[Rfam]
Purine riboswitch aptamer: a 102-nucleotide RNA sequence from Paenibacillus foliorum.
RNA sequence: GCUAAAAAUGUCGAUGCGUCUCGUAUAAUGUCGGGGAUAUGGCCCGUAAGUAUCUACCCAGAAACCUUUAAUUUUUGGACUACGAGUAGCGUGAACAGAAAG
Numbered sequence: 001g002c003u004a005a006a007a008a009u010g011u012c013g014a015u016g017c018g019u020c021u022c023g024u025a026u027a028a029u030g031u032c033g034g035g036g037a038u039a040u041g042g043c044c045c046g047u048a049a050g051u052a053u054c055u056a057c058c059c060a061g062a063a064a065c066c067u068u069u070a071a072u073u074u075u076u077g078g079a080c081u082a083c084g085a086g087u088a089g090c091g092u093g094a095a096c097a098g099a100a101a102g
Stems, first nucleotide, its partner, number of pairs: 020086006029049001032046004058078007

Riboswitches are metabolite binding domains within certain messenger RNAs that serve as precision sensors for their corresponding targets. Allosteric rearrangement of mRNA structure is mediated by ligand binding, and this results in modulation of gene expression.
Taxonomically the source falls in Paenibacillus (Bacteria, Bacillota, Bacilli, Caryophanales).